RNA: Streptomyces RNA 4115
RNA sequence: GCGUGGGUCGGCCCGCUGCACAGGAUCAGUGGGCUGGGGGAACACCGCCGUCCCAUUCCCCGCGGGCGGCGGUCCGGGCCGGAAGGCGCGCAUGUGCCUUCCGGCCCGGC
Numbered sequence: 001g002c003g004u005g006g007g008u009c010g011g012c013c014c015g016c017u018g019c020a021c022a023g024g025a026u027c028a029g030u031g032g033g034c035u036g037g038g039g040g041a042a043c044a045c046c047g048c049c050g051u052c053c054c055a056u057u058c059c060c061c062g063c064g065g066g067c068g069g070c071g072g073u074c075c076g077g078g079c080c081g082g083a084a085g086g087c088g089c090g091c092a093u094g095u096g097c098c099u100u101c102c103g104g105c106c107c108g109g110c
Stems, first nucleotide, its partner, number of pairs: 002108001006075002009036010037043001045072009076107013